[Rfam]
RNA sequence: UCUAUCGUGAGGUAGAAUUUGAAAGAAGCUGUAGGCAAAUCUCUGAUCCGAUGGACAGAAAUCGCAUAUAAGGCUAGGCUCUGAGAGAUAAGUUGGCAAAAAACAACGAUGUCUGAUUACUACCACAUUUGUUGGAGCAGUGUAGAUGCGGUGGAUAUAUGGAGGAAAGAGCGUGCACC
Numbered sequence: 001u002c003u004a005u006c007g008u009g010a011g012g013u014a015g016a017a018u019u020u021g022a023a024a025g026a027a028g029c030u031g032u033a034g035g036c037a038a039a040u041c042u043c044u045g046a047u048c049c050g051a052u053g054g055a056c057a058g059a060a061a062u063c064g065c066a067u068a069u070a071a072g073g074c075u076a077g078g079c080u081c082u083g084a085g086a087g088a089u090a091a092g093u094u095g096g097c098a099a100a101a102a103a104c105a106a107c108g109a110u111g112u113c114u115g116a117u118u119a120c121u122a123c124c125a126c127a128u129u130u131g132u133u134g135g136a137g138c139a140g141u142g143u144a145g146a147u148g149c150g151g152u153g154g155a156u157a158u159a160u161g162g163a164g165g166a167a168a169g170a171g172c173g174u175g176c177a178c179c
Base pairs, nucleotide, nucleotide: 001016002015003014004013005012006011028179030177031176032175035172036171040165041164042163043162044161045160046156047155048154049153050152062151063150064149065148066147067146073143074142078138079137080136081135082134083133086114087113088112089111092107093106094105095104
About this RNA:
Rfam assigns this 179-nucleotide RNA sequence from Anaerosporobacter mobilis to the family "Group II catalytic intron D1-D4-3". Taxonomically the source falls in Anaerosporobacter mobilis (Bacteria, Bacillati, Clostridia, Lachnospiraceae). The pairing is the family consensus, mapped onto this sequence. Rfam describes the family as follows. Group II introns are found in rRNA, tRNA and mRNA of organelles in fungi, plants and protists, and also in mRNA in bacteria.